[Rfam]
RNA sequence: UCGCAUGUCUGAAAACGUGUAAUCUAAGCUACGUACAGGGAACCUCGUUACACCAUCAUUGCUGAGGGAAAAGUCCCCGGACGUUGGACAGAGAUGUUCUGCGUUGGGCGGUGGCUUGCGUAACGUGUUUAAUGCUAAGACGUCCUGUGUGACAGAGCACAUCGCUUGCAAUCCAGAUUUGUCAAUAUCACAGAUAUUCAAGUGAAGCACACACGUGCUGCUACAGAACGGGGCUCCUUCUCAGCAUUCG
Numbered sequence: 001u002c003g004c005a006u007g008u009c010u011g012a013a014a015a016c017g018u019g020u021a022a023u024c025u026a027a028g029c030u031a032c033g034u035a036c037a038g039g040g041a042a043c044c045u046c047g048u049u050a051c052a053c054c055a056u057c058a059u060u061g062c063u064g065a066g067g068g069a070a071a072a073g074u075c076c077c078c079g080g081a082c083g084u085u086g087g088a089c090a091g092a093g094a095u096g097u098u099c100u101g102c103g104u105u106g107g108g109c110g111g112u113g114g115c116u117u118g119c120g121u122a123a124c125g126u127g128u129u130u131a132a133u134g135c136u137a138a139g140a141c142g143u144c145c146u147g148u149g150u151g152a153c154a155g156a157g158c159a160c161a162u163c164g165c166u167u168g169c170a171a172u173c174c175a176g177a178u179u180u181g182u183c184a185a186u187a188u189c190a191c192a193g194a195u196a197u198u199c200a201a202g203u204g205a206a207g208c209a210c211a212c213a214c215g216u217g218c219u220g221c222u223a224c225a226g227a228a229c230g231g232g233g234c235u236c237c238u239u240c241u242c243a244g245c246a247u248u249c250g
Stems, first nucleotide, its partner, number of pairs: 002250002005247002009244004015203002018200002023067003027063003038053001040051001042049001072235002075233004087098004099111002102108001113174002116171005125165001133159003142153003206219005

Shown here is a 250-nucleotide RNA from Sinocyclocheilus anshuiensis, a member of the family "RNase MRP". A reference for the family is Schmitt et al. (1993), "Secondary structure of RNase MRP RNA as predicted by phylogenetic comparison", FASEB J. From the family's description: RNase MRP is an enzymatically active ribonucleoprotein with two distinct roles in eukaryotes. In mitochondria it plays a direct role in the initiation of mitochondrial DNA replication. Rfam classes the family as a ribozyme.